Overview:
The family of this 101-nucleotide sequence from Rhinopithecus roxellana is "Y RNA". Y RNAs are components of the Ro ribonucleoprotein particle (Ro RNP), in association with Ro60 and La proteins. Taxonomically the source falls in Rhinopithecus (Eukaryota, Opisthokonta, Euarchontoglires, Simiiformes). The family's consensus secondary structure is taken from published work. For this family Rfam cites "Conserved features of Y RNAs: a comparison of experimentally derived secondary structures" (Teunissen et al., Nucleic Acids Res, 2000).
[Rfam]
RNA sequence: AGCUGGUCUGAGUGCAGCGGUGUUUACGGCUGACUGACCACAAUCAGUUACGGGUUGCUUGGGCCUUCUCCAUUCCCACUGCUUCACUUGACUAGCCACAG
Numbered sequence: 001a002g003c004u005g006g007u008c009u010g011a012g013u014g015c016a017g018c019g020g021u022g023u024u025u026a027c028g029g030c031u032g033a034c035u036g037a038c039c040a041c042a043a044u045c046a047g048u049u050a051c052g053g054g055u056u057g058c059u060u061g062g063g064c065c066u067u068c069u070c071c072a073u074u075c076c077c078a079c080u081g082c083u084u085c086a087c088u089u090g091a092c093u094a095g096c097c098a099c100a101g
Stems, first nucleotide, its partner, number of pairs: 002096007010089002014085001016080002019077002022075001030062001032060002